[Rfam]
A member of the RNA family "mir-320 microRNA precursor family" from Prolemur simus, 76 nucleotides long.
On this family, see Berezikov et al., Genome Res 2006: "Many novel mammalian microRNA candidates identified by extensive cloning and RAKE analysis".
The family's consensus secondary structure was predicted with RNAalifold.
A search with the family's covariance model found it, with a score of 73 bits.

RNA sequence: ACUUCUCUUGGCCUUCUCUUCCCAGUUCUUGCAGGAGUUGAGAAAAGCUGGGUUGAGAGGGCGGAAAAAAAAAAAC
Numbered sequence: 001a002c003u004u005c006u007c008u009u010g011g012c013c014u015u016c017u018c019u020u021c022c023c024a025g026u027u028c029u030u031g032c033a034g035g036a037g038u039u040g041a042g043a044a045a046a047g048c049u050g051g052g053u054u055g056a057g058a059g060g061g062c063g064g065a066a067a068a069a070a071a072a073a074a075a076c
Base pairs, nucleotide, nucleotide: 014059015058016057017056018055021052022051023050024049025048029044030043034039